RNA sequence: UCGACGUGCCGCGACUGGCGAGGAUGGGUUCAACCAUCGGGGAGCGGCACACCGUCCGACCGGCUUCGACCGCCUGGGGGCCUCGG
Numbered sequence: 001u002c003g004a005c006g007u008g009c010c011g012c013g014a015c016u017g018g019c020g021a022g023g024a025u026g027g028g029u030u031c032a033a034c035c036a037u038c039g040g041g042g043a044g045c046g047g048c049a050c051a052c053c054g055u056c057c058g059a060c061c062g063g064c065u066u067c068g069a070c071c072g073c074c075u076g077g078g079g080g081c082c083u084c085g086g
Stems, first nucleotide, its partner, number of pairs: 003053001006050007015041002017074004024037004063081005
Shown here is an 86-nucleotide RNA from Actinopolymorpha pittospori, a member of the family "ZMP/ZTP riboswitch aptamer (pfl RNA motif)". The family's consensus secondary structure is taken from published work.